A member of the RNA family "SAM riboswitch aptamer (S box leader)" from Clostridium cellulovorans, 103 nucleotides long. The organism belongs to Clostridium cellulovorans, within Bacteria. From the family's description: The SAM riboswitch is found upstream of a number of genes which code for proteins involved in methionine or cysteine biosynthesis in Gram-positive bacteria. The family's consensus secondary structure is taken from published work.

[Rfam]
RNA sequence: GCCUUAUCAAGAGAAACUGAGGGACUGGCCCUAUGACGUUUCAGCAACCAUGCUUUAUAGUGAUGGUGCUAAAUCCAGCAGAUUUAAAUCUGAGAGAUGAGGA
Numbered sequence: 001g002c003c004u005u006a007u008c009a010a011g012a013g014a015a016a017c018u019g020a021g022g023g024a025c026u027g028g029c030c031c032u033a034u035g036a037c038g039u040u041u042c043a044g045c046a047a048c049c050a051u052g053c054u055u056u057a058u059a060g061u062g063a064u065g066g067u068g069c070u071a072a073a074u075c076c077a078g079c080a081g082a083u084u085u086a087a088a089u090c091u092g093a094g095a096g097a098u099g100a101g102g103a
Stems, first nucleotide, its partner, number of pairs: 002102007013042005021031003025078004043070004048066002051062004074095001079092005